[Rfam]
RNA sequence: UGCUCCGGUGGGAGGGGCGCCCUUCCCAAAGCACCACGACGGUGAAAGCACCUCACCAAGCCCCACCCCACCCUCCCGCCGCGUCGCACGCCGCCUCACCCGGGCGAGUGAACAUCACCAACUCGGCUGGAUUUUCGGCUGGUUGCCGGCCUUACUCUCAGCGCAACACAACCGCAGACAUGCGACGGCCCCCGCCGGGACUGCAAUCCCAGUGCGAGGGCCUGACCGCCGAGGAAGAACGAGGCUCUUCCUG
Numbered sequence: 001u002g003c004u005c006c007g008g009u010g011g012g013a014g015g016g017g018c019g020c021c022c023u024u025c026c027c028a029a030a031g032c033a034c035c036a037c038g039a040c041g042g043u044g045a046a047a048g049c050a051c052c053u054c055a056c057c058a059a060g061c062c063c064c065a066c067c068c069c070a071c072c073c074u075c076c077c078g079c080c081g082c083g084u085c086g087c088a089c090g091c092c093g094c095c096u097c098a099c100c101c102g103g104g105c106g107a108g109u110g111a112a113c114a115u116c117a118c119c120a121a122c123u124c125g126g127c128u129g130g131a132u133u134u135u136c137g138g139c140u141g142g143u144u145g146c147c148g149g150c151c152u153u154a155c156u157c158u159c160a161g162c163g164c165a166a167c168a169c170a171a172c173c174g175c176a177g178a179c180a181u182g183c184g185a186c187g188g189c190c191c192c193c194g195c196c197g198g199g200a201c202u203g204c205a206a207u208c209c210c211a212g213u214g215c216g217a218g219g220g221c222c223u224g225a226c227c228g229c230c231g232a233g234g235a236a237g238a239a240c241g242a243g244g245c246u247c248u249u250c251c252u253g
Stems, first nucleotide, its partner, number of pairs: 007230004016080004096111004101106001126162005187222005193216003197210004233251005